[Rfam]
RNA: Small nucleolar RNA SNORA55
RNA sequence: GCAUCUGAUUCUUUACCAUUCCUUGCAAUACAGUGCUGGAGUGGAGAUACACGAUGCAACAGGAAAGCAGAGGAAAUCCAGACAAGCUUCCUUUCACCACAGUGGGACUUGUCUCUACACCUCUGCAACAUUU
Numbered sequence: 001g002c003a004u005c006u007g008a009u010u011c012u013u014u015a016c017c018a019u020u021c022c023u024u025g026c027a028a029u030a031c032a033g034u035g036c037u038g039g040a041g042u043g044g045a046g047a048u049a050c051a052c053g054a055u056g057c058a059a060c061a062g063g064a065a066a067g068c069a070g071a072g073g074a075a076a077u078c079c080a081g082a083c084a085a086g087c088u089u090c091c092u093u094u095c096a097c098c099a100c101a102g103u104g105g106g107a108c109u110u111g112u113c114u115c116u117a118c119a120c121c122u123c124u125g126c127a128a129c130a131u132u133u
Base pairs, nucleotide, nucleotide: 001057002056003055004054005053013047014046016044017043018042019041021039022038067126068125069124070123071122072121080114081113082112083111084110085109086108094105095104096103